[Rfam]
Nucleotides: 077
Base pairs, nucleotide, nucleotide: 003074004073011036012035016031017030018029019028020027021026034063039070040069041068042067045065046064047061048060049059
Number, partner (000 for none) and nucleotide at each position: 001000a002000c003074a004073g005000a006000u007000a008000a009000a010000g011036c012035c013000a014000a015000a016031c017030c018029c019028g020027u021026c022000g023000u024000g025000a026021g027020g028019c029018g030017g031016g032000g033000a034063c035012g036011g037000a038000a039070a040069g041068c042067c043000g044000c045065g046064g047061g048060u049059c050000u051000c052000g053000g054000a055000g056000g057000g058000a059049g060048a061047c062000a063034g064046c065045c066000a067042g068041g069040u070039u071000g072000c073004c074003u075000u076000g077000a
Overview: Shown here is a 77-nucleotide RNA from Desulfonema magnum, a member of the family "c-di-GMP-I-GGC riboswitch aptamer". The base pairs follow the family's consensus structure, which is taken from published work. The organism belongs to Desulfonema, within Bacteria. The match comes from Rfam's covariance-model search (65 bits). The literature on the family includes a 2017 paper in Proc Natl Acad Sci U S A by Weinberg et al., "Bioinformatic analysis of riboswitch structures uncovers variant classes with altered ligand specificity".